[Rfam]
RNA sequence: GUGCAUAUGAUGGAAACUUACCUUGUCUGAAUACAUUGAUGUGUUCAAAGGAACCACUGAUGCAC
Numbered sequence: 001g002u003g004c005a006u007a008u009g010a011u012g013g014a015a016a017c018u019u020a021c022c023u024u025g026u027c028u029g030a031a032u033a034c035a036u037u038g039a040u041g042u043g044u045u046c047a048a049a050g051g052a053a054c055c056a057c058u059g060a061u062g063c064a065c
Base pairs, nucleotide, nucleotide: 001065002064003063004062005061
Description:
Shown here is a 65-nucleotide RNA sequence from Eleutherodactylus coqui, a member of the family "Small nucleolar RNA SNORD42". For this family Rfam cites "Purified box C/D snoRNPs are able to reproduce site-specific 2'-O-methylation of target RNA in vitro" (Galardi et al., Mol Cell Biol, 2002). Gene Ontology terms of the family: RNA processing and nucleolus. It scores 60 bits against the family's covariance model. Rfam 15.1 lists 848 matches to the family in 572 species. From the family's description: snoRNA U42 is found in intron 3 of the ribosomal protein L23a (RPL23a) gene in humans and is also present in mice.